This 52-nucleotide sequence from Labrenzia sp. 011 belongs to the Rfam family "Xanthine riboswitch aptamer (NMT1 RNA)". The source organism's lineage runs through Bacteria, Pseudomonadati, Pseudomonadota, Alphaproteobacteria and Labrenzia. For this family Rfam cites "Insights into xanthine riboswitch structure and metal ion-mediated ligand recognition" (Xu et al., Nucleic Acids Res, 2021). Rfam links the family to the GO term purine nucleobase binding. The base pairs follow the family's consensus structure, which is taken from published work.
RNA sequence: GUGUGGAGUAUAAGCUGGCAGUGCCACCGCGGCACGGGUCAUUGCUCCGUGA
Numbered sequence: 001g002u003g004u005g006g007a008g009u010a011u012a013a014g015c016u017g018g019c020a021g022u023g024c025c026a027c028c029g030c031g032g033c034a035c036g037g038g039u040c041a042u043u044g045c046u047c048c049g050u051g052a
Stems, first nucleotide, its partner, number of pairs: 005048006015037001018039002021035005